The family of this 75-nucleotide sequence is "Small nucleolar RNA SNORD113/SNORD114 family". The family's consensus secondary structure is taken from published work. Rfam 15.1 lists 5,721 matches to the family in 142 species. Its family is annotated with nucleolus and RNA processing in the Gene Ontology. Rfam classes the family as a C/D-box small nucleolar RNA. Rfam's curators write: The imprinted human domain at 14q32 contains two clusters of tandemly repeated small nucleolar RNAs named 14q(I) and 14q(II) snoRNAs. These two clusters are named SNORD113 and SNORD114 respectively in the HGNC approved gene symbol nomenclature.
RNA sequence: UGGACCAAUGAUGACAAAUACCGGCGUAUGAGUCUUGGAUGAUGAAUAAUACGUGUCUGGAACUCUGAGGUCCAU
Numbered sequence: 001u002g003g004a005c006c007a008a009u010g011a012u013g014a015c016a017a018a019u020a021c022c023g024g025c026g027u028a029u030g031a032g033u034c035u036u037g038g039a040u041g042a043u044g045a046a047u048a049a050u051a052c053g054u055g056u057c058u059g060g061a062a063c064u065c066u067g068a069g070g071u072c073c074a075u
Base pairs, nucleotide, nucleotide: 002073003072004071005070006069